RNA sequence: AAAAAGGAUCGGUUGGUUAAAUAAACUAUGCAGGUCUUCGGACUUGAGCUGAAUGGACUAUCAAGACAUAUGGCCGACAUUAUUUUUGUGACCUUGUAGGAUUAGCACGCUUUGCCGACCCUCCAA
Number, nucleotide and partner (000 for none) at each position: 001a000002a000003a000004a000005a000006g000007g000008a000009u077010c076011g075012g074013u000014u028015g027016g026017u025018u024019a000020a000021a000022u000023a000024a018025a017026c016027u015028a014029u048030g000031c046032a045033g044034g043035u042036c041037u000038u000039c000040g000041g036042a035043c034044u033045u032046g031047a000048g029049c073050u072051g071052a000053a069054u068055g067056g000057a000058c000059u000060a000061u000062c000063a000064a000065g000066a000067c055068a054069u053070a000071u051072g050073g049074c012075c011076g010077a009078c000079a000080u000081u000082a000083u000084u000085u000086u000087u000088g000089u000090g000091a000092c000093c000094u000095u000096g124097u000098a122099g121100g120101a000102u118103u117104a000105g115106c114107a113108c000109g000110c000111u000112u000113u107114g106115c105116c000117g103118a102119c000120c100121c099122u098123c000124c096125a000126a000
RNA: U11 spliceosomal RNA